[Rfam]
RNA sequence: UACUGUGGUGGUUUCUGUAUUUGGCAGGUCUGUUACUGUGUCAGAGCGGCCUUAAACUACCACAGAGAUCAGAAAGGAGAAGGCUGUGCUGAGAACUUUUACAAGCUUUUAGUUUUCAGCUUCUUGUUCAGCUCCUACAGAA
Numbered sequence: 001u002a003c004u005g006u007g008g009u010g011g012u013u014u015c016u017g018u019a020u021u022u023g024g025c026a027g028g029u030c031u032g033u034u035a036c037u038g039u040g041u042c043a044g045a046g047c048g049g050c051c052u053u054a055a056a057c058u059a060c061c062a063c064a065g066a067g068a069u070c071a072g073a074a075a076g077g078a079g080a081a082g083g084c085u086g087u088g089c090u091g092a093g094a095a096c097u098u099u100u101a102c103a104a105g106c107u108u109u110u111a112g113u114u115u116u117c118a119g120c121u122u123c124u125u126g127u128u129c130a131g132c133u134c135c136u137a138c139a140g141a142a
Stems, first nucleotide, its partner, number of pairs: 005063007023051003027047001029045004076135004101127005